mir-25 microRNA precursor family: an 85-nucleotide sequence from Xenopus tropicalis. The literature on the family includes a 2008 paper in Nat Biotechnol by Friedlander et al., "Discovering microRNAs from deep sequencing data using miRDeep". It scores 46 bits against the family's covariance model. Lineage of the source: Eukaryota > Deuterostomia > Amphibia > Pipoidea > Silurana.

[Rfam]
RNA sequence: GGCCGAUGUUGUGGGCCGGUGGAAAGGGCCGAUGUUGUGGGCCGGUGGAAACAUCGGCCCUUUCCUCCGGCCCACAACAUCGGCC
Number, nucleotide and partner (000 for none) at each position: 001g085002g084003c083004c082005g000006a080007u079008g078009u077010u000011g000012u000013g000014g072015g071016c070017c069018g000019g067020u000021g065022g064023a063024a000025a000026g000027g000028g058029c057030c056031g055032a054033u000034g052035u051036u050037g046038u045039g000040g000041g000042c000043c000044g000045g038046u037047g000048g000049a000050a036051a035052c034053a000054u032055c031056g030057g029058c028059c000060c000061u000062u000063u023064c022065c021066u000067c019068c000069g017070g016071c015072c014073c000074a000075c000076a000077a009078c008079a007080u006081c000082g004083g003084c002085c001